[Rfam]
This 217-nucleotide RNA from Clostridium magnum belongs to the Rfam family "T-box leader".
The organism belongs to Clostridium magnum, within Bacteria.

RNA sequence: AAAAUGACUGUGAAAAAGAGGAGUAGAAGUAAGAAUAGUAUUAAGAGAGGAAAGUUUAUUAGCUGAGAGACUUUCUAUACGAAUCACUUUGAAGGUAGCUUUGGAGUUUCUUUACUGAAUUUAUAGUAGGUAAAGACGGUUUUCUUAACCGUUAAUUGUAUUAAGAGCCUGUAACUUUACAGGAAAAAAGGUGGUAACGCGGGUCUUCGUCCUUUUA
Numbered sequence: 001a002a003a004a005u006g007a008c009u010g011u012g013a014a015a016a017a018g019a020g021g022a023g024u025a026g027a028a029g030u031a032a033g034a035a036u037a038g039u040a041u042u043a044a045g046a047g048a049g050g051a052a053a054g055u056u057u058a059u060u061a062g063c064u065g066a067g068a069g070a071c072u073u074u075c076u077a078u079a080c081g082a083a084u085c086a087c088u089u090u091g092a093a094g095g096u097a098g099c100u101u102u103g104g105a106g107u108u109u110c111u112u113u114a115c116u117g118a119a120u121u122u123a124u125a126g127u128a129g130g131u132a133a134a135g136a137c138g139g140u141u142u143u144c145u146u147a148a149c150c151g152u153u154a155a156u157u158g159u160a161u162u163a164a165g166a167g168c169c170u171g172u173a174a175c176u177u178u179a180c181a182g183g184a185a186a187a188a189a190g191g192u193g194g195u196a197a198c199g200c201g202g203g204u205c206u207u208c209g210u211c212c213u214u215u216u217a
Stems, first nucleotide, its partner, number of pairs: 007107002015102004026090005039079003049076008110135007137151003168183006188214004199210004
Annotation
Uncharged tRNA acts as the effector for transcription antitermination of genes in the T-box leader family.